[Rfam]
RNA sequence: CUGGCAUGAUGAUGAUAAUUACGAUUGAUUUUGUAUGAUUAUUCAUAUGAUUAAUACAAUCCUCCUACUCAUUCUGA
Numbered sequence: 001c002u003g004g005c006a007u008g009a010u011g012a013u014g015a016u017a018a019u020u021a022c023g024a025u026u027g028a029u030u031u032u033g034u035a036u037g038a039u040u041a042u043u044c045a046u047a048u049g050a051u052u053a054a055u056a057c058a059a060u061c062c063u064c065c066u067a068c069u070c071a072u073u074c075u076g077a
Stems, first nucleotide, its partner, number of pairs: 006072004032053002036047001
RNA: Small nucleolar RNA Z105
Organism: Lotus japonicus